[Rfam]
RNA: MIR2619 microRNA precursor family
Organism: Medicago truncatula
RNA sequence: AAACAGCCUCCUAUGUUUUGAUUCUUUAGCAGUUUGGACCCCCAAGGCAAAAAAAAUAAAAAAUAUUGACACGUGGCACCUUACUUAGGGUGCCACGUCAGCGUUGACCGAGUCAACAAGGGACUGGGGGUCUAAAACUACCAAAGAAUCAAAACAUAGGGGGUUGUUU
Number, nucleotide and partner (000 for none) at each position: 001a169002a168003a000004c166005a165006g164007c163008c162009u000010c000011c000012u158013a157014u156015g155016u154017u153018u152019u151020g150021a149022u148023u147024c146025u145026u144027u143028a000029g141030c000031a139032g138033u137034u136035u134036g133037g132038a131039c130040c129041c128042c127043c126044a125045a000046g000047g000048c000049a000050a000051a000052a000053a000054a000055a000056a000057u000058a000059a000060a000061a000062a000063a000064u000065a000066u000067u000068g000069a000070c000071a098072c097073g000074u095075g094076g093077c092078a091079c090080c089081u000082u000083a000084c000085u000086u000087a000088g000089g080090g079091u078092g077093c076094c075095a074096c000097g072098u071099c000100a000101g000102c000103g000104u000105u000106g000107a000108c000109c000110g000111a000112g000113u000114c000115a000116a000117c000118a000119a000120g000121g000122g000123a000124c000125u044126g043127g042128g041129g040130g039131u038132c037133u036134a035135a000136a034137a033138c032139u031140a000141c029142c000143a027144a026145a025146g024147a023148a022149u021150c020151a019152a018153a017154a016155c015156a014157u013158a012159g000160g000161g000162g008163g007164u006165u005166g004167u000168u002169u001